[Rfam]
RNA sequence: GUUAGAGUAGAUUAUUAGCGGUAGUGGUUAAGAAUGGGACGUUGUCUUAACACGAAUAAAUCACUGGAGUGAUUUACUAUUGAUAAUUGCGUUCACUACU
Numbered sequence: 001g002u003u004a005g006a007g008u009a010g011a012u013u014a015u016u017a018g019c020g021g022u023a024g025u026g027g028u029u030a031a032g033a034a035u036g037g038g039a040c041g042u043u044g045u046c047u048u049a050a051c052a053c054g055a056a057u058a059a060a061u062c063a064c065u066g067g068a069g070u071g072a073u074u075u076a077c078u079a080u081u082g083a084u085a086a087u088u089g090c091g092u093u094c095a096c097u098a099c100u
Stems, first nucleotide, its partner, number of pairs: 001100001003098003010088009020077001024053002027051007037094005057076007
This 100-nucleotide RNA sequence from Helcococcus ovis belongs to the Rfam family "THF (Tetrahydrofolate) riboswitch aptamer". About the family: Tetrahydrofolate (THF) riboswitch was first reported for Ames et al. as an RNA motif in 5' untranslated (5'-UTR)regions of folate transport and biosynthesis genes in Firmicutes genomes. It scores 47 bits against the family's covariance model. Lineage of the source: Bacteria > Bacillati > Bacillota > Tissierellales > Helcococcus.